[Rfam]
RNA sequence: GGCCUCCCUCUGUGGGGAGAUCGAUCAUGGGGCCCCCAGAUCGAUCACCCCGCAGAGGGAGACC
Numbered sequence: 001g002g003c004c005u006c007c008c009u010c011u012g013u014g015g016g017g018a019g020a021u022c023g024a025u026c027a028u029g030g031g032g033c034c035c036c037c038a039g040a041u042c043g044a045u046c047a048c049c050c051c052g053c054a055g056a057g058g059g060a061g062a063c064c
Base pairs, nucleotide, nucleotide: 001064002063004061005060006059007058008057009056010055011054012053013052014051015050016049017048019046020045021044022043023042024041025040026039029036030035